[Rfam]
RNA sequence: AUGAAUCGCGCGGAAGAGCCCAGCAUCCCGGAUGCUGGCGCCGACGGAGCAACCGCCCCGGAAACUCUCAGGCAACCAGGACCGCGCGAUCAGG
Number, nucleotide and partner (000 for none) at each position: 001a000002u000003g000004a000005a000006u089007c088008g087009c086010g085011c084012g083013g082014a000015a000016g000017a000018g000019c000020c038021c037022a036023g035024c000025a000026u000027c000028c000029c000030g000031g000032a000033u000034g000035c023036u022037g021038g020039c000040g073041c072042c071043g069044a068045c000046g000047g067048a066049g065050c000051a000052a000053c061054c060055g000056c000057c000058c000059c000060g054061g053062a000063a000064a000065c049066u048067c047068u044069c043070a000071g042072g041073c040074a000075a000076c000077c000078a000079g000080g000081a000082c013083c012084g011085c010086g009087c008088g007089a006090u000091c000092a000093g000094g000
The family of this 94-nucleotide RNA from Paraburkholderia xenovorans is "Glycine riboswitch aptamer". Gene Ontology term of the family: glycine biosynthetic process.